[Rfam]
RNA sequence: GCAGACUCAAAGCCGCGUUUGCUUGUUCCAUACAGGACACUUGUCCACCUUUACAAGCGGGCUAAGGUCUGAGUAUACAUGUCGCUCUUGCUUGGUUCUAGCGGGACAGUCUUUUAAAUAAGGCAGCGGGCACAAGCAAUCCGCCAUUUAUAAUGUCUUUUCGACAUUUGGCUUGGAAUGCUCUAGCGACUGUGCAUUGGCCUUAAUAAAGGCUAGUGUGCUUGAGUGCACUUCGCGGCUUGUGUUAUUAUUUCUAACACAAAACUCGAUUCAGACUACUCUUUGUCUGC
Numbered sequence: 001g002c003a004g005a006c007u008c009a010a011a012g013c014c015g016c017g018u019u020u021g022c023u024u025g026u027u028c029c030a031u032a033c034a035g036g037a038c039a040c041u042u043g044u045c046c047a048c049c050u051u052u053a054c055a056a057g058c059g060g061g062c063u064a065a066g067g068u069c070u071g072a073g074u075a076u077a078c079a080u081g082u083c084g085c086u087c088u089u090g091c092u093u094g095g096u097u098c099u100a101g102c103g104g105g106a107c108a109g110u111c112u113u114u115u116a117a118a119u120a121a122g123g124c125a126g127c128g129g130g131c132a133c134a135a136g137c138a139a140u141c142c143g144c145c146a147u148u149u150a151u152a153a154u155g156u157c158u159u160u161u162c163g164a165c166a167u168u169u170g171g172c173u174u175g176g177a178a179u180g181c182u183c184u185a186g187c188g189a190c191u192g193u194g195c196a197u198u199g200g201c202c203u204u205a206a207u208a209a210a211g212g213c214u215a216g217u218g219u220g221c222u223u224g225a226g227u228g229c230a231c232u233u234c235g236c237g238g239c240u241u242g243u244g245u246u247a248u249u250a251u252u253u254c255u256a257a258c259a260c261a262a263a264a265c266u267c268g269a270u271u272c273a274g275a276c277u278a279c280u281c282u283u284u285g286u287c288u289g290c
Stems, first nucleotide, its partner, number of pairs: 001290004009283002014238001021058005035046004069274005083188004093108002096106003109124005125184002129182003143172003240262007
Dot-bracket structure: ((((....((...[......(((((.........((((....)))).......)))))..........(((((.........((((......((.(((.....)))))(((((......)))))((..(((...........(((........................))).......))))))))).................................................].(((((((.........))))))).......))))).......))...))))
Rfam assigns this 290-nucleotide RNA sequence from Mycena kentingensis to the family "Nuclear RNase P". It scores 76 bits against the family's covariance model. NCBI's taxonomy places the organism under Eukaryota, Opisthokonta, Basidiomycota, Mycenaceae, Mycena. A reference for the family is Frank and Pace (1998), "Ribonuclease P: unity and diversity in a tRNA processing ribozyme", Annu Rev Biochem.